[Rfam]
Shown here is a 73-nucleotide RNA from Alligator mississippiensis, a member of the family "Mammalian CPEB3 ribozyme".
Pairs were carried over by alignment from the consensus structure, which is taken from published work.
RNA sequence: UCAUAUAGACACGCUAUAGCAGAAGCACUCACUCCGCGGCCUGUCAGAUUCCAACAAAUCCGCAAAUUCUGCU
Number, nucleotide and partner (000 for none) at each position: 001u000002c000003a000004u000005a000006u000007a000008g000009a000010c000011a000012c000013g040014c039015u038016a000017u000018a073019g072020c071021a070022g069023a068024a067025g037026c036027a000028c000029u000030c000031a000032c000033u000034c000035c000036g026037c025038g015039g014040c013041c000042u000043g000044u000045c062046a000047g060048a059049u058050u057051c000052c000053a000054a000055c000056a000057a050058a049059u048060c047061c000062g045063c000064a000065a000066a000067u024068u023069c022070u021071g020072c019073u018